[Rfam]
A member of the RNA family "Small nucleolar RNA snoR26" from Actinidia chinensis, 91 nucleotides long. The source organism's lineage runs through Eukaryota, Mesangiospermae, Gunneridae, asterids and Actinidia chinensis. By type it is a C/D-box small nucleolar RNA. Gene Ontology terms of the family: RNA processing and nucleolus.

RNA sequence: UGAGCAUCAGUGAUGAGUAACUCCUUUUGUUAUCCUUGCACUUUGAUUGCUAGUGAAGAAACCUAUGGGGACAGUUGACUCUGAGAUGCUC
Numbered sequence: 001u002g003a004g005c006a007u008c009a010g011u012g013a014u015g016a017g018u019a020a021c022u023c024c025u026u027u028u029g030u031u032a033u034c035c036u037u038g039c040a041c042u043u044u045g046a047u048u049g050c051u052a053g054u055g056a057a058g059a060a061a062c063c064u065a066u067g068g069g070g071a072c073a074g075u076u077g078a079c080u081c082u083g084a085g086a087u088g089c090u091c
Base pairs, nucleotide, nucleotide: 002091003090004089005088006087007086008085